[Rfam]
RNA sequence: CGCGCAAACUCACCCGUGUUCGGCAGGAGCGGGGGACCCACAGGUAGAACCGCCUGUUCCGGUCUCCGGAACGGCUUUGGGGUAAAGCCGCGUUUCGGCGCGGCCGGACAUCUCCAGUCCGCACCCGACAGCUCACCUCGCAGGCGCCGGAGAGGAAUUCG
Numbered sequence: 001c002g003c004g005c006a007a008a009c010u011c012a013c014c015c016g017u018g019u020u021c022g023g024c025a026g027g028a029g030c031g032g033g034g035g036a037c038c039c040a041c042a043g044g045u046a047g048a049a050c051c052g053c054c055u056g057u058u059c060c061g062g063u064c065u066c067c068g069g070a071a072c073g074g075c076u077u078u079g080g081g082g083u084a085a086a087g088c089c090g091c092g093u094u095u096c097g098g099c100g101c102g103g104c105c106g107g108a109c110a111u112c113u114c115c116a117g118u119c120c121g122c123a124c125c126c127g128a129c130a131g132c133u134c135a136c137c138u139c140g141c142a143g144g145c146g147c148c149g150g151a152g153a154g155g156a157a158u159u160c161g
Stems, first nucleotide, its partner, number of pairs: 001146003009027002029141006039079002080126003088103004106120004
RNA: c-di-AMP riboswitch aptamer (ydaO/yuaA leader)